[Rfam]
RNA sequence: AAAAUUAAAUAGCCUAAUUCUUAAAAUCUGAUAUAAGAAGCGGGGGACCUAAUUUUUGGGGUAAAUUACGCAUAGCGUAAGGGGUGUCUCUUCUACCUAACCCGUCAACUAACCUCGUAGGCAGAAAGUUUCCAAAA
Numbered sequence: 001a002a003a004a005u006u007a008a009a010u011a012g013c014c015u016a017a018u019u020c021u022u023a024a025a026a027u028c029u030g031a032u033a034u035a036a037g038a039a040g041c042g043g044g045g046g047a048c049c050u051a052a053u054u055u056u057u058g059g060g061g062u063a064a065a066u067u068a069c070g071c072a073u074a075g076c077g078u079a080a081g082g083g084g085u086g087u088c089u090c091u092u093c094u095a096c097c098u099a100a101c102c103c104g105u106c107a108a109c110u111a112a113c114c115u116c117g118u119a120g121g122c123a124g125a126a127a128g129u130u131u132c133c134a135a136a137a
Stems, first nucleotide, its partner, number of pairs: 012122003018039006040118006050058002059103003067079004082097002085095001
Description:
The family of this 137-nucleotide RNA sequence from Pseudobacteroides cellulosolvens is "c-di-AMP riboswitch aptamer (ydaO/yuaA leader)".